A member of the RNA family "MIR2593 microRNA precursor family" from Trifolium medium, 134 nucleotides long.
[Rfam]
RNA sequence: UUAUAAGAAACAGUUCACUCUUUAGGUCCAUUGAAUAACCGAUGAAUCUGGUCUAUAUCCGAUGAAUUUGGUCUAUAUGUAGACCAGAUUCAUCGGUUAUUCAAUGGACCUAAAAAGUGAACUGUUUCUUAUAA
Numbered sequence: 001u002u003a004u005a006a007g008a009a010a011c012a013g014u015u016c017a018c019u020c021u022u023u024a025g026g027u028c029c030a031u032u033g034a035a036u037a038a039c040c041g042a043u044g045a046a047u048c049u050g051g052u053c054u055a056u057a058u059c060c061g062a063u064g065a066a067u068u069u070g071g072u073c074u075a076u077a078u079g080u081a082g083a084c085c086a087g088a089u090u091c092a093u094c095g096g097u098u099a100u101u102c103a104a105u106g107g108a109c110c111u112a113a114a115a116a117g118u119g120a121a122c123u124g125u126u127u128c129u130u131a132u133a134a
Stems, first nucleotide, its partner, number of pairs: 002133006009126005015120005021114005027108018049086010

The match comes from Rfam's covariance-model search (97 bits). Gene Ontology terms of the family: miRNA-mediated post-transcriptional gene silencing and RISC complex.